A member of the RNA family "Guanidine-I riboswitch aptamer" from Acinetobacter baylyi, 102 nucleotides long. On this family, see Trachman RJ 3rd and Ferre-D'Amare, RNA 2021: "An uncommon [K(+)(Mg(2+))2] metal ion triad imparts stability and selectivity to the Guanidine-I riboswitch".
RNA sequence: CAUAAGGUGAUCUAGGGUUCCGAUGCUGUUUACUAACAGGAUGGCUGGUCCGAGAGAUUACGGUUCGUAAGAACUACACGGAGGGAUAAAAGCCCAGGAGGU
Number, nucleotide and partner (000 for none) at each position: 001c000002a000003u000004a000005a000006g000007g061008u060009g059010a058011u057012c056013u000014a000015g051016g050017g000018u000019u000020c048021c047022g045023a042024u041025g000026c039027u038028g037029u000030u000031u000032a000033c000034u000035a000036a000037c028038a027039g026040g000041a024042u023043g000044g000045c022046u000047g021048g020049u000050c016051c015052g000053a000054g000055a000056g012057a011058u010059u009060a008061c007062g075063g074064u073065u072066c071067g000068u000069a000070a000071g066072a065073a064074c063075u062076a000077c097078a000079c100080g000081g000082a000083g095084g094085g093086a000087u000088a000089a000090a000091a000092g000093c085094c084095c083096a000097g077098g000099a000100g079101g000102u000
Description:
The pairing is the family consensus, mapped onto this sequence.